[Rfam]
Annotation
The family of this 38-nucleotide RNA sequence from Zingiber officinale is "Plastid psbT antisense RNA". The family's consensus secondary structure was predicted with LocARNA. Lineage of the source: Eukaryota > Embryophyta > Tracheophyta > commelinids > Zingiber. On this family, see Richter et al., Plant Commun 2023: "Retrograde signaling in plants: A critical review focusing on the GUN pathway and beyond". Plastid-psbT-asRNA is an antisense RNA (asRNA) motif reported in Plastids It has been shown that psbT expression is controlled by two antisense RNAs originated from psbN transcription by the nuclear-encoded polymerase (NEP), in which the short antisense RNA hybridizes to psbT CDS, thereby stabilizing psbT transcript while blocking its translation during photooxidative stress.
RNA sequence: GUAGUUGGAUCUCCUAUUUUUUGGAAUGCUUCAAAUUC
Numbered sequence: 001g002u003a004g005u006u007g008g009a010u011c012u013c014c015u016a017u018u019u020u021u022u023g024g025a026a027u028g029c030u031u032c033a034a035a036u037u038c
Stems, first nucleotide, its partner, number of pairs: 003018003007014002020035006